[Rfam]
RNA sequence: GGAUAAUCCCGGGCGACCGGGGAAAGGUCGGUGGCAACUGGUGCCGCCCUCCCCUUCCGCUGUGGCGCAAGCCGCAACGGCCAAGGCAUAUGUCACCAGUUCCUCUGGCCGGAGUCGUGUCCGGUCAGUUCAGCACGAAUCAGGAACUGUGCGGUCAGGCGUGAUCAGAAACCACGCUGAGCCGAGUCAGGCCCACGGGACGUUUCGACCCGUGCGCCGAGGCAGUUACCCAGAGGGUUAUGGUUGCUACUGCGCAGACCAGAACGCCAUCGCGUUUCCCGGCGGGCCCACCCCGCCAGAAGGCCCGGCUCGAAAGAGCCAGGCGCGCAACGGAAAUACGGCGGCGGGGAGAGAGCGAACCUGGCAAAGUUCGCCCAACCUCCUCCACCGGGGCGGCGUGAAAAACCGCGUCACCCCACUGCAAAAAUGAAACGCAACCUGAGAGUUAAGAGGUCAGACCCGUAGCACGGGGCCAACGCCCGGCCAAAAGCCGGGGCCGUCCUCGUGAUCAAGGUGCCGACGCGAAAUUGAAAGAUUGCAGGCGUGUCUGCACCACGUCCGGCGCGAUGCUUCCGGCAGGAAACAUCCGAACCGGGCGAAGAGGCCUCACUCGAAAGAUCCCGACCGGCAACGGUCAGGACGGUCCCGCCAUGAGACCGAAACAUCCGCAUGCCGCGGAGAGUGGCGUCGGGAAACACACAGCCCGCGAAAGCGAGGGCGCCCAAUGUGUGUGGAUGGGAAAGAGCGCGUGGCGAGCGCC
Numbered sequence: 001g002g003a004u005a006a007u008c009c010c011g012g013g014c015g016a017c018c019g020g021g022g023a024a025a026g027g028u029c030g031g032u033g034g035c036a037a038c039u040g041g042u043g044c045c046g047c048c049c050u051c052c053c054c055u056u057c058c059g060c061u062g063u064g065g066c067g068c069a070a071g072c073c074g075c076a077a078c079g080g081c082c083a084a085g086g087c088a089u090a091u092g093u094c095a096c097c098a099g100u101u102c103c104u105c106u107g108g109c110c111g112g113a114g115u116c117g118u119g120u121c122c123g124g125u126c127a128g129u130u131c132a133g134c135a136c137g138a139a140u141c142a143g144g145a146a147c148u149g150u151g152c153g154g155u156c157a158g159g160c161g162u163g164a165u166c167a168g169a170a171a172c173c174a175c176g177c178u179g180a181g182c183c184g185a186g187u188c189a190g191g192c193c194c195a196c197g198g199g200a201c202g203u204u205u206c207g208a209c210c211c212g213u214g215c216g217c218c219g220a221g222g223c224a225g226u227u228a229c230c231c232a233g234a235g236g237g238u239u240a241u242g243g244u245u246g247c248u249a250c251u252g253c254g255c256a257g258a259c260c261a262g263a264a265c266g267c268c269a270u271c272g273c274g275u276u277u278c279c280c281g282g283c284g285g286g287c288c289c290a291c292c293c294c295g296c297c298a299g300a301a302g303g304c305c306c307g308g309c310u311c312g313a314a315a316g317a318g319c320c321a322g323g324c325g326c327g328c329a330a331c332g333g334a335a336a337u338a339c340g341g342c343g344g345c346g347g348g349g350a351g352a353g354a355g356c357g358a359a360c361c362u363g364g365c366a367a368a369g370u371u372c373g374c375c376c377a378a379c380c381u382c383c384u385c386c387a388c389c390g391g392g393g394c395g396g397c398g399u400g401a402a403a404a405a406c407c408g409c410g411u412c413a414c415c416c417c418a419c420u421g422c423a424a425a426a427a428u429g430a431a432a433c434g435c436a437a438c439c440u441g442a443g444a445g446u447u448a449a450g451a452g453g454u455c456a457g458a459c460c461c462g463u464a465g466c467a468c469g470g471g472g473c474c475a476a477c478g479c480c481c482g483g484c485c486a487a488a489a490g491c492c493g494g495g496g497c498c499g500u501c502c503u504c505g506u507g508a509u510c511a512a513g514g515u516g517c518c519g520a521c522g523c524g525a526a527a528u529u530g531a532a533a534g535a536u537u538g539c540a541g542g543c544g545u546g547u548c549u550g551c552a553c554c555a556c557g558u559c560c561g562g563c564g565c566g567a568u569g570c571u572u573c574c575g576g577c578a579g580g581a582a583a584c585a586u587c588c589g590a591a592c593c594g595g596g597c598g599a600a601g602a603g604g605c606c607u608c609a610c611u612c613g614a615a616a617g618a619u620c621c622c623g624a625c626c627g628g629c630a631a632c633g634g635u636c637a638g639g640a641c642g643g644u645c646c647c648g649c650c651a652u653g654a655g656a657c658c659g660a661a662a663c664a665u666c667c668g669c670a671u672g673c674c675g676c677g678g679a680g681a682g683u684g685g686c687g688u689c690g691g692g693a694a695a696c697a698c699a700c701a702g703c704c705c706g707c708g709a710a711a712g713c714g715a716g717g718g719c720g721c722c723c724a725a726u727g728u729g730u731g732u733g734g735a736u737g738g739g740a741a742a743g744a745g746c747g748c749g750u751g752g753c754g755a756g757c758g759c760c
Stems, first nucleotide, its partner, number of pairs: 008021005026052002030048007097149008109124005115138005152184004158178005168206005190218003194214006222253004228238003242439006281297006303324003307320005346385006355374006397410004443612003450608004466507007479495006515552003519548006557597006565589001566587004571582004619640003623636005641659005648686004665679005695732007702719002705714003745759003
RNA: MISL RNA